[Rfam]
RNA sequence: GGAGCAAUCUGUCUCCGAGCCUGCCCUCCUACCGGGACACCCCCAUGGCGGCAGGCCAACGGGUUCUGGCGGAAACGCCCGAGCCUCCCUUUUGGAAAGGAGAUGACAGCAGCAGGAC
Numbered sequence: 001g002g003a004g005c006a007a008u009c010u011g012u013c014u015c016c017g018a019g020c021c022u023g024c025c026c027u028c029c030u031a032c033c034g035g036g037a038c039a040c041c042c043c044c045a046u047g048g049c050g051g052c053a054g055g056c057c058a059a060c061g062g063g064u065u066c067u068g069g070c071g072g073a074a075a076c077g078c079c080c081g082a083g084c085c086u087c088c089c090u091u092u093u094g095g096a097a098a099g100g101a102g103a104u105g106a107c108a109g110c111a112g113c114a115g116g117a118c
Stems, first nucleotide, its partner, number of pairs: 011104006019056007028048002034043003061086006068079004087095002
Dot-bracket structure: ..........((((((..(((((((..((....(((....)))...)).)))))))....((((((.((((....)))).))))))((.....))...))))))..............
Rfam assigns this 118-nucleotide RNA sequence from Pelobacter propionicus to the family "Molybdenum/Tungsten riboswitch aptamer (Moco RNA motif)".
It scores 66 bits against the family's covariance model.
NCBI's taxonomy places the organism under Bacteria, Pseudomonadati, Desulfuromonadia, Pelobacter, Pelobacter propionicus.